Guanidine-II riboswitch aptamer (mini-ykkC): a 48-nucleotide RNA from Hydrogenophaga sp. RAC07.

[Rfam]
RNA sequence: GCAGCGGGACGACCCGUUGCCGCGAGACCCCUUCGCAGGACGGCCUGC
Numbered sequence: 001g002c003a004g005c006g007g008g009a010c011g012a013c014c015c016g017u018u019g020c021c022g023c024g025a026g027a028c029c030c031c032u033u034c035g036c037a038g039g040a041c042g043g044c045c046u047g048c
Stems, first nucleotide, its partner, number of pairs: 001020008035048005

About this RNA: NCBI's taxonomy places the organism under Bacteria, Pseudomonadati, Pseudomonadota, Betaproteobacteria, Hydrogenophaga.